Source information
Rfam assigns this 261-nucleotide RNA sequence from Domatiomyces globalis to the family "Fungal signal recognition particle RNA".

RNA sequence: UUCCUGUUGCGGGAUUUGAGGAGAAUGCCUGUAGAAAGCAUGACCUGUUUCACAUUCCACUUGCGAUGUGUGCCUCGCUCGACACUUGGGCUGGCUAUAUCACUCGUGUGUGCAGACCACGAUCGCUGAUUAGUCUUAAGCAAUGUUUGGCACUCGUCAGGGUAGAAAUAUCGCAGCGAACCUUACAGCCUGAGUGGGCGGCGCGAGAUUACACCGUUGUAAGAUACGCAGCUUGUGGUUUCGUUGGGUGUUCAACUUUUU
Number, nucleotide and partner (000 for none) at each position: 001u000002u014003c013004c012005u000006g000007u000008u000009g000010c000011g000012g004013g003014a002015u000016u000017u000018g259019a258020g257021g256022a000023g000024a252025a251026u250027g249028c248029c247030u000031g000032u000033a000034g242035a241036a240037a239038g000039c237040a236041u235042g234043a233044c000045c231046u230047g229048u228049u000050u000051c000052a000053c000054a000055u000056u000057c000058c000059a000060c223061u222062u221063g000064c219065g218066a217067u216068g215069u000070g214071u213072g212073c000074c207075u206076c205077g204078c203079u201080c200081g199082a000083c196084a195085c194086u193087u192088g191089g190090g189091c188092u000093g135094g000095c133096u132097a131098u000099a130100u129101c128102a127103c000104u122105c121106g120107u119108g118109u000110g117111u116112g000113c000114a000115g000116a111117c110118c108119a107120c106121g105122a104123u000124c000125g000126c000127u102128g101129a100130u099131u097132a096133g095134u000135c093136u140137u000138a000139a000140g136141c000142a000143a000144u187145g186146u185147u000148u000149g182150g181151c000152a000153c000154u179155c178156g177157u176158c000159a000160g000161g000162g171163u170164a169165g000166a000167a000168a000169u164170a163171u162172c000173g000174c000175a000176g157177c156178g155179a154180a000181c150182c149183u000184u000185a146186c145187a144188g091189c090190c089191u088192g087193a086194g085195u084196g083197g000198g000199c081200g080201g079202c000203g078204c077205g076206a075207g074208a000209u000210u000211a000212c072213a071214c070215c068216g067217u066218u065219g064220u000221a062222a061223g060224a000225u000226a000227c000228g048229c047230a046231g045232c000233u043234u042235g041236u040237g039238g000239u037240u036241u035242c034243g000244u000245u000246g000247g029248g028249u027250g026251u025252u024253c000254a000255a000256c021257u020258u019259u018260u000261u000

Rfam 15.1 lists 748 matches to the family in 741 species. By type it is a non-coding RNA gene. The match comes from Rfam's covariance-model search (102 bits).